[Rfam]
RNA sequence: GGCCUCCCUCUGUGGGGCGAUCGAUCGCCAGGCCCCCAGAUCAAUUGCCCUGCAGAGGGAGGCC
Numbered sequence: 001g002g003c004c005u006c007c008c009u010c011u012g013u014g015g016g017g018c019g020a021u022c023g024a025u026c027g028c029c030a031g032g033c034c035c036c037c038a039g040a041u042c043a044a045u046u047g048c049c050c051u052g053c054a055g056a057g058g059g060a061g062g063c064c
Stems, first nucleotide, its partner, number of pairs: 001064021023042004031036001